Record summary: This 65-nucleotide RNA sequence belongs to the Rfam family "Small nucleolar RNA R79". Rfam's curators put it in the seed alignment. It is annotated as a C/D-box small nucleolar RNA. For this family Rfam cites "Experimental RNomics: identification of 140 candidates for small non-messenger RNAs in the plant Arabidopsis thaliana" (Marker et al., Curr Biol, 2002). Pairs were carried over by alignment from the consensus structure, which was predicted with PFOLD.
RNA sequence: GAAGGUGAUGAUGAUAAAGAUGAACGCUUGGGAACUUCGACUGACAGUGAGAACACUGAACUUUC
Numbered sequence: 001g002a003a004g005g006u007g008a009u010g011a012u013g014a015u016a017a018a019g020a021u022g023a024a025c026g027c028u029u030g031g032g033a034a035c036u037u038c039g040a041c042u043g044a045c046a047g048u049g050a051g052a053a054c055a056c057u058g059a060a061c062u063u064u065c
Stems, first nucleotide, its partner, number of pairs: 001065005